[Rfam]
RNA sequence: UGGGGUAGCUGAAUUAGAGAUCGGCGCCCUGUCUUUUUAUCUAUAAUUCUGGAGUCAAAAAUGUCUCUAAGCGUUGAAGCUAAAGCUCAAAUCGUUUCUGAGUUCGGUCGUGGUGCU
Numbered sequence: 001u002g003g004g005g006u007a008g009c010u011g012a013a014u015u016a017g018a019g020a021u022c023g024g025c026g027c028c029c030u031g032u033c034u035u036u037u038u039a040u041c042u043a044u045a046a047u048u049c050u051g052g053a054g055u056c057a058a059a060a061a062u063g064u065c066u067c068u069a070a071g072c073g074u075u076g077a078a079g080c081u082a083a084a085g086c087u088c089a090a091a092u093c094g095u096u097u098c099u100g101a102g103u104u105c106g107g108u109c110g111u112g113g114u115g116c117u
Stems, first nucleotide, its partner, number of pairs: 008025005048071001050069005
The record is a 117-nucleotide RNA sequence from Shimwellia blattae, which matches "Ribosomal S15 leader" in Rfam. The literature on the family includes a 1996 paper in Biochimie by Benard et al., "Pseudoknot and translational control in the expression of the S15 ribosomal protein". Taxonomically the source falls in Shimwellia blattae (Bacteria, Pseudomonadati, Pseudomonadota, Enterobacteriaceae). It is annotated as a cis-regulatory leader. A search with the family's covariance model found it, with a score of 107 bits. Gene Ontology term of the family: regulation of translation, ncRNA-mediated. The E. coli Ribosomal S15 gene 5' UTR can form two alternative structures. One that is a series of three hairpins, The other includes a pseudoknot. This structure causes translational regulation of the S15 protein. Pairs were carried over by alignment from the consensus structure, which is taken from published work.